[Rfam]
RNA sequence: CUAGUUGGUUGAAUGGUAGCUCUAUUGUAAUAGAGAGGAAAGUCUGGGCUCCAUAGGAAAAAGUACCAGGUAACUCCUGGCAGGAGAAAUCCUAGAGAUAGUGCCACAGAGAAUAGACCGCCUAAUCAAGGCAAGGGUGAAACGGUGAGGUAAGAGCUCACCGCCUUUUUAGUAAUAAAAAGGGCAAGGAAAACCUUACUUGGAGCAAGACCAAAUAGGGAUAGCACGAUCUUUGAUCAAACAUCCUAAGUUUGCUAUCCGGGUUGGUUGCUGGAGCUGUUUAGAAAUAAUCAGCCAAGAUAAAUUACCAUUUUAAAUGACAGAACCCAGCUUAUAGACCAACUAGCAAA
Numbered sequence: 001c002u003a004g005u006u007g008g009u010u011g012a013a014u015g016g017u018a019g020c021u022c023u024a025u026u027g028u029a030a031u032a033g034a035g036a037g038g039a040a041a042g043u044c045u046g047g048g049c050u051c052c053a054u055a056g057g058a059a060a061a062a063g064u065a066c067c068a069g070g071u072a073a074c075u076c077c078u079g080g081c082a083g084g085a086g087a088a089a090u091c092c093u094a095g096a097g098a099u100a101g102u103g104c105c106a107c108a109g110a111g112a113a114u115a116g117a118c119c120g121c122c123u124a125a126u127c128a129a130g131g132c133a134a135g136g137g138u139g140a141a142a143c144g145g146u147g148a149g150g151u152a153a154g155a156g157c158u159c160a161c162c163g164c165c166u167u168u169u170u171a172g173u174a175a176u177a178a179a180a181a182g183g184g185c186a187a188g189g190a191a192a193a194c195c196u197u198a199c200u201u202g203g204a205g206c207a208a209g210a211c212c213a214a215a216u217a218g219g220g221a222u223a224g225c226a227c228g229a230u231c232u233u234u235g236a237u238c239a240a241a242c243a244u245c246c247u248a249a250g251u252u253u254g255c256u257a258u259c260c261g262g263g264u265u266g267g268u269u270g271c272u273g274g275a276g277c278u279g280u281u282u283a284g285a286a287a288u289a290a291u292c293a294g295c296c297a298a299g300a301u302a303a304a305u306u307a308c309c310a311u312u313u314u315a316a317a318u319g320a321c322a323g324a325a326c327c328c329a330g331c332u333u334a335u336a337g338a339c340c341a342a343c344u345a346g347c348a349a350a
Stems, first nucleotide, its partner, number of pairs: 001346010011335001012312007020035006040333003044330005049205004057247001061201005066080005081095001082093004096196002101194002104189002118136002120132004144162006163185001164183008209269004219260006239253004276295004281290003
Description:
Bacterial RNase P class A: a 350-nucleotide sequence from alpha proteobacterium HIMB114. The family's consensus secondary structure is taken from published work. Lineage of the source: Bacteria > Pseudomonadati > Pseudomonadota > Candidatus Pelagibacterales > Candidatus Pelagibacteraceae.